[Rfam]
RNA sequence: GAUUUUGAAGAUGGUAUCUAAAUAUAUGUUAGUAUUUAUUAGGCUGUUGGCAGAGGGAUUUUUCUGUUCCGGAAGAAAAAUCUGGAGUCCUGAACAGAAAGGAC
Number, nucleotide and partner (000 for none) at each position: 001g000002a000003u102004u101005u100006u099007g000008a000009a000010g000011a000012u000013g000014g000015u000016a000017u000018c000019u000020a000021a000022a000023u000024a000025u000026a000027u000028g000029u000030u000031a000032g000033u000034a000035u000036u000037u000038a000039u000040u000041a000042g000043g000044c000045u000046g000047u000048u000049g000050g000051c000052a000053g000054a000055g000056g000057g000058a000059u000060u000061u000062u000063u000064c000065u000066g000067u000068u000069c000070c000071g000072g000073a000074a000075g000076a000077a000078a000079a000080a000081u000082c000083u000084g000085g000086a000087g000088u000089c000090c000091u000092g000093a000094a000095c000096a000097g000098a000099a006100a005101g004102g003103a000104c000